[Rfam]
RNA sequence: GGUUGCUGAGGAUGGAAGAGGCAGCCAUCACCCUCUGGGGAGAUGCGGGAGUGCCACCCCGCCAGCAAUC
Dot-bracket structure: ((((((((..(((((....[[[[.))))).(((....)))....(((((..]]]]..)))))))))))))
Numbered sequence: 001g002g003u004u005g006c007u008g009a010g011g012a013u014g015g016a017a018g019a020g021g022c023a024g025c026c027a028u029c030a031c032c033c034u035c036u037g038g039g040g041a042g043a044u045g046c047g048g049g050a051g052u053g054c055c056a057c058c059c060c061g062c063c064a065g066c067a068a069u070c
Stems, first nucleotide, its partner, number of pairs: 001070008011029005020055004031040003045062005
The record is a 70-nucleotide RNA from Jeonjuvirus BSP38, which matches "skipping-rope RNA" in Rfam.
The match comes from Rfam's covariance-model search (56 bits).
Rfam classes the family as a small RNA.